RNA sequence: ACCGCGCGAACGGGGCUGUUGAUGCUUUGCCCCAAGCAUCGCUGAUCUGUCAGCGCCCGCCCAGGCAGUCAGGGUCUUCGAGGCUGCGCCGCGUGCUCCCGCACGCCGACCCGGCCCGUCCGCUUCGCAUCGCCUGCGCGGACACGCGCCCCCCAAGGUCGCGGAUGC
Numbered sequence: 001a002c003c004g005c006g007c008g009a010a011c012g013g014g015g016c017u018g019u020u021g022a023u024g025c026u027u028u029g030c031c032c033c034a035a036g037c038a039u040c041g042c043u044g045a046u047c048u049g050u051c052a053g054c055g056c057c058c059g060c061c062c063a064g065g066c067a068g069u070c071a072g073g074g075u076c077u078u079c080g081a082g083g084c085u086g087c088g089c090c091g092c093g094u095g096c097u098c099c100c101g102c103a104c105g106c107c108g109a110c111c112c113g114g115c116c117c118g119u120c121c122g123c124u125u126c127g128c129a130u131c132g133c134c135u136g137c138g139c140g141g142a143c144a145c146g147c148g149c150c151c152c153c154c155a156a157g158g159u160c161g162c163g164g165a166u167g168c
Stems, first nucleotide, its partner, number of pairs: 011059004018054006065087006073111004091106006138168003145163004150158002
This 168-nucleotide RNA sequence belongs to the Rfam family "radC RNA". Rfam classes the family as a cis-regulatory element. The family's consensus secondary structure is taken from published work. The family has 148 seed sequences and 500 matches in Rfam 15.1.